[Rfam]
RNA sequence: UAGGUUUGUCCUAAGUCAAACUUAUUCAACUUUAACCAAGUUUAUACAAAAAUAACAACAUAUAUACUACAAAAUAUAUGCCCGAUAAAAAUAUAUUUCAUGGUGGAUUCAAUGAAACAAAUUUAUUGUUGUAGAUGCUAUUAUAUUUUUAUAUAAAUUUGGUUAAAAAUUGGAGAAGUUUGACUUAGGACAAACCUAA
Numbered sequence: 001u002a003g004g005u006u007u008g009u010c011c012u013a014a015g016u017c018a019a020a021c022u023u024a025u026u027c028a029a030c031u032u033u034a035a036c037c038a039a040g041u042u043u044a045u046a047c048a049a050a051a052a053u054a055a056c057a058a059c060a061u062a063u064a065u066a067c068u069a070c071a072a073a074a075u076a077u078a079u080g081c082c083c084g085a086u087a088a089a090a091a092u093a094u095a096u097u098u099c100a101u102g103g104u105g106g107a108u109u110c111a112a113u114g115a116a117a118c119a120a121a122u123u124u125a126u127u128g129u130u131g132u133a134g135a136u137g138c139u140a141u142u143a144u145a146u147u148u149u150u151a152u153a154u155a156a157a158u159u160u161g162g163u164u165a166a167a168a169a170u171u172g173g174a175g176a177a178g179u180u181u182g183a184c185u186u187a188g189g190a191c192a193a194a195c196c197u198a199a
Base pairs, nucleotide, nucleotide: 005194006193007192008191009190011188012187013186014185015184016183017182018181019180020179021178022177023176025174026173031167032166033165034164035163043153044152045151046150048148049147050146053143054142055141057139059137060136061135063133064132065131066130072124073123074122075121
RNA: MIR1435 microRNA precursor family
Organism: Panicum hallii